Shown here is a 75-nucleotide RNA from Vicugna pacos, a member of the family "mir-197 microRNA precursor family".

[Rfam]
RNA sequence: GGCUGUGUCGGGUAGAGAGGGCAGUGGAAGGUCAGAGCUCUUCGCCCUUCACCACCUUCUCUACCCAGCACGGCU
Numbered sequence: 001g002g003c004u005g006u007g008u009c010g011g012g013u014a015g016a017g018a019g020g021g022c023a024g025u026g027g028a029a030g031g032u033c034a035g036a037g038c039u040c041u042u043c044g045c046c047c048u049u050c051a052c053c054a055c056c057u058u059c060u061c062u063a064c065c066c067a068g069c070a071c072g073g074c075u
Base pairs, nucleotide, nucleotide: 001075002074003073004072006070007069008068010066011065012064013063015061016060017059018058019057020056021055024052025051026050027049028048030046031045032044034041035040
A search with the family's covariance model found it, with a score of 87 bits.